[Rfam]
Record summary
Shown here is an 84-nucleotide sequence from Ptilonorhynchus violaceus, a member of the family "Small nucleolar RNA SNORD103/SNORD85". The pairing is the family consensus, mapped onto this sequence. Rfam links the family to the GO terms RNA processing and nucleolus. A search with the family's covariance model found it, with a score of 60 bits. A reference for the family is Huttenhofer et al. (2001), "RNomics: an experimental approach that identifies 201 candidates for novel, small, non-messenger RNAs in mouse", EMBO J. The source organism's lineage runs through Eukaryota, Neognathae, Neoaves, Ptilonorhynchidae and Ptilonorhynchus. It is annotated as a C/D-box small nucleolar RNA.

RNA sequence: CCUGGCAGUGAUGACAAACUUGCCCUCACUGAGAGCUCCGUUCAAUAAUGAACCUCUCCGUGUGCUCAGAGCAGCUGAGCCAGA
Numbered sequence: 001c002c003u004g005g006c007a008g009u010g011a012u013g014a015c016a017a018a019c020u021u022g023c024c025c026u027c028a029c030u031g032a033g034a035g036c037u038c039c040g041u042u043c044a045a046u047a048a049u050g051a052a053c054c055u056c057u058c059c060g061u062g063u064g065c066u067c068a069g070a071g072c073a074g075c076u077g078a079g080c081c082a083g084a
Stems, first nucleotide, its partner, number of pairs: 002083005